[Rfam]
RNA sequence: GCACUGGUUUAGCUCAGUGGUUACUUCGAACAAAUUCUACCUGUCUAGAUACUGCUCUCUAUCCCUCCCCGGGAUCGAACCACGGGCGCUGUCCAGUGCUUUU
Numbered sequence: 001g002c003a004c005u006g007g008u009u010u011a012g013c014u015c016a017g018u019g020g021u022u023a024c025u026u027c028g029a030a031c032a033a034a035u036u037c038u039a040c041c042u043g044u045c046u047a048g049a050u051a052c053u054g055c056u057c058u059c060u061a062u063c064c065c066u067c068c069c070c071g072g073g074a075u076c077g078a079a080c081c082a083c084g085g086g087c088g089c090u091g092u093c094c095a096g097u098g099c100u101u102u103u
Stems, first nucleotide, its partner, number of pairs: 002098006012087004017083004025079005
This 103-nucleotide sequence from Collichthys lucidus belongs to the Rfam family "Vault RNA". The family's consensus secondary structure is taken from published work. The family's RNA type in Rfam is non-coding RNA gene.